[Rfam]
Nucleotides: 084
Base pairs, nucleotide, nucleotide: 001084002083004081005080006079007078010075011074012073013072014071015070016069017068019066024061025060026059027058028057030055
Number, partner (000 for none) and nucleotide at each position: 001084u002083c003000a004081c005080u006079u007078u008000u009000c010075u011074a012073a013072g014071u015070a016069c017068u018000a019066g020000u021000g022000c023000c024061g025060c026059a027058g028057g029000a030055g031000a032000u033000a034000g035000u036000u037000g038000a039000a040000a041000c042000g043000u044000c045000a046000g047000a048000a049000a050000g051000u052000a053000g054000a055030c056000c057028c058027c059026u060025g061024c062000u063000g064000c065000c066019c067000c068017a069016g070015u071014g072013c073012u074011u075010a076000u077000c078007a079006a080005a081004g082000a083002g084001a